[Rfam]
RNA sequence: AAAAAUGAUGAUGGUUUUAAGGCGCAAAUAAAAAAUUCUAACUAUUAUGUAGAAUGAUGAUAAUUGGUUGUCAUCCUUGAACUGAUUUUUUUUUU
Numbered sequence: 001a002a003a004a005a006u007g008a009u010g011a012u013g014g015u016u017u018u019a020a021g022g023c024g025c026a027a028a029u030a031a032a033a034a035a036u037u038c039u040a041a042c043u044a045u046u047a048u049g050u051a052g053a054a055u056g057a058u059g060a061u062a063a064u065u066g067g068u069u070g071u072c073a074u075c076c077u078u079g080a081a082c083u084g085a086u087u088u089u090u091u092u093u094u095u
Base pairs, nucleotide, nucleotide: 002092003091004090005089
Annotation
The family of this 95-nucleotide sequence from Hepatocystis sp. ex Piliocolobus tephrosceles is "small nucleolar RNA snoR19". For this family Rfam cites "Structural RNAs of known and unknown function identified in malaria parasites by comparative genomics and RNA analysis" (Chakrabarti et al., RNA, 2007). The organism belongs to Hepatocystis, within Eukaryota. Pairs were carried over by alignment from the consensus structure. It is annotated as a C/D-box small nucleolar RNA.